RAGATH-18 RNA: a 62-nucleotide sequence. From the family's description: Actinobacteria, Firmicutes, Fusobacteria, Thermotogae (1 example).
RNA sequence: CCUUUGGAGUGUUACAACAAACGAAAGUAGCUAAUGCGAAAUCGGACACUGAGAAGAAGGAA
Numbered sequence: 001c002c003u004u005u006g007g008a009g010u011g012u013u014a015c016a017a018c019a020a021a022c023g024a025a026a027g028u029a030g031c032u033a034a035u036g037c038g039a040a041a042u043c044g045g046a047c048a049c050u051g052a053g054a055a056g057a058a059g060g061a062a
Stems, first nucleotide, its partner, number of pairs: 001060005009049005022044003030037002